[Rfam]
RNA sequence: CGUCAAUGACAGGGGAGCGCACCUAGCGCUGAGAGUGCGGGCAACCGCAGACCCUCACACCUGAUCCGGUUCGCACCGGCGUAGGGAGUCUGAGUUCUCAGGUG
Numbered sequence: 001c002g003u004c005a006a007u008g009a010c011a012g013g014g015g016a017g018c019g020c021a022c023c024u025a026g027c028g029c030u031g032a033g034a035g036u037g038c039g040g041g042c043a044a045c046c047g048c049a050g051a052c053c054c055u056c057a058c059a060c061c062u063g064a065u066c067c068g069g070u071u072c073g074c075a076c077c078g079g080c081g082u083a084g085g086g087a088g089u090c091u092g093a094g095u096u097c098u099c100a101g102g103u104g
Stems, first nucleotide, its partner, number of pairs: 008090003011055004017029004036049005060085004066079004